U2 spliceosomal RNA: a 193-nucleotide RNA from Pediculus humanus. Its Rfam clan is "U2 clan". For this family Rfam cites "A conserved pseudouridine modification in eukaryotic U2 snRNA induces a change in branch-site architecture" (Newby and Greenbaum, RNA, 2001). Rfam classes the family as a spliceosomal small nuclear RNA. Rfam's curators put it in the seed alignment. The family has 208 seed sequences and 71,512 matches in Rfam 15.1.
RNA sequence: AUCGCUUCUCGGCCUUAUGGCUAAGAUCAAAGUGUAGUAUCUGUUCUUAUCAGCUUAAUAUCUGAUACGACCCUCAUUGAGGGUCCAGAAUAUUAAACUGAUUUUUGGAAACGGAUGGAGUGUUAGGGGCUUGCUCCACCUCCGUCACGGGUUGGCUCGGCAUUGCAGUACAGCCGAGAUCGGCCCACCCUUA
Numbered sequence: 001a002u003c004g005c006u007u008c009u010c011g012g013c014c015u016u017a018u019g020g021c022u023a024a025g026a027u028c029a030a031a032g033u034g035u036a037g038u039a040u041c042u043g044u045u046c047u048u049a050u051c052a053g054c055u056u057a058a059u060a061u062c063u064g065a066u067a068c069g070a071c072c073c074u075c076a077u078u079g080a081g082g083g084u085c086c087a088g089a090a091u092a093u094u095a096a097a098c099u100g101a102u103u104u105u106u107g108g109a110a111a112c113g114g115a116u117g118g119a120g121u122g123u124u125a126g127g128g129g130c131u132u133g134c135u136c137c138a139c140c141u142c143c144g145u146c147a148c149g150g151g152u153u154g155g156c157u158c159g160g161c162a163u164u165g166c167a168g169u170a171c172a173g174c175c176g177a178g179a180u181c182g183g184c185c186c187a188c189c190c191u192u193a
Base pairs, nucleotide, nucleotide: 007026008025009024011022012021013020014019048067049066050065051064052063053062069085070084071083072082073081074080075079114146115145116144117143118142119141120140126137127136128135129134149186150185151184152183153182154181156178157177158176159175160174161173